mir-1759 microRNA precursor family: a 78-nucleotide RNA sequence from Copsychus sechellarum. The match comes from Rfam's covariance-model search (80 bits). Its family is annotated with RISC complex and miRNA-mediated post-transcriptional gene silencing in the Gene Ontology.
Nucleotides: 078
Base pairs, nucleotide, nucleotide: 001078002077003076004075005074006073007072008071010069011063012062014059015058016057017056018054019053021052022051023050024049025048026047027046028045030043031042033040034039
Number, partner (000 for none) and nucleotide at each position: 001078g002077c003076u004075g005074u006073u007072c008071u009000a010069g011063g012062g013000u014059a015058g016057g017056a018054g019053g020000a021052g022051a023050g024049a025048g026047g027046u028045g029000u030043u031042a032000c033040u034039u035000c036000a037000u038000g039034a040033g041000c042031u043030g044000c045028c046027a047026c048025c049024u050023c051022u052021c053019c054018c055000a056017u057016c058015c059014u060000c061000u062012c063011c064000u065000c066000u067000g068000c069010c070000a071008g072007g073006a074005g075004c076003a077002g078001c